Shown here is a 145-nucleotide RNA from Dictyostelium purpureum, a member of the family "Dictyostelium snoRNA DdR18". Gene Ontology terms of the family: RNA processing and nucleolus. Rfam classes the family as an H/ACA-box small nucleolar RNA.
[Rfam]
RNA sequence: AAUUUUGAGCGUACCGUGGGGGGAUUGGGUUCUUUUUAUACCAAUCUAAUAAUAAACCUGUUUUAAUAUGCUCAAAGAAAAAAUGGUGCCUUUAAUCAAUCGGUAAUCUGUUCUAUUACUGGAUUUUCAUGCAGUCACUACAUUC
Numbered sequence: 001a002a003u004u005u006u007g008a009g010c011g012u013a014c015c016g017u018g019g020g021g022g023g024a025u026u027g028g029g030u031u032c033u034u035u036u037u038a039u040a041c042c043a044a045u046c047u048a049a050u051a052a053u054a055a056a057c058c059u060g061u062u063u064u065a066a067u068a069u070g071c072u073c074a075a076a077g078a079a080a081a082a083a084u085g086g087u088g089c090c091u092u093u094a095a096u097c098a099a100u101c102g103g104u105a106a107u108c109u110g111u112u113c114u115a116u117u118a119c120u121g122g123a124u125u126u127u128c129a130u131g132c133a134g135u136c137a138c139u140a141c142a143u144u145c
Base pairs, nucleotide, nucleotide: 008072009071010070012065013064018058019057022053024050025049026048027047028046029045030044085139086138087137088136090134091133093131094130098125099124100123101122102120103119104118105117106116107115